[Rfam]
RNA sequence: UUCUUAUCGAGAGAGGCAGAGGGACUGACCCUGUGAAGCCUCGGCAACCGGCAGAUGCAUGCACGGUGCCAAUUUCAGUGGAAGGCGAAAGUCAUUCCGAAGAUGAGAG
Numbered sequence: 001u002u003c004u005u006a007u008c009g010a011g012a013g014a015g016g017c018a019g020a021g022g023g024a025c026u027g028a029c030c031c032u033g034u035g036a037a038g039c040c041u042c043g044g045c046a047a048c049c050g051g052c053a054g055a056u057g058c059a060u061g062c063a064c065g066g067u068g069c070c071a072a073u074u075u076c077a078g079u080g081g082a083a084g085g086c087g088a089a090a091g092u093c094a095u096u097c098c099g100a101a102g103a104u105g106a107g108a109g
Base pairs, nucleotide, nucleotide: 001109002108003107004106005105006104007103008102013042014041015040016039017038021031022030023029025078026077027076028075043070044069045068046067048066049065051062052061053060074101080097081096082095084093
RNA: SAM riboswitch aptamer (S box leader)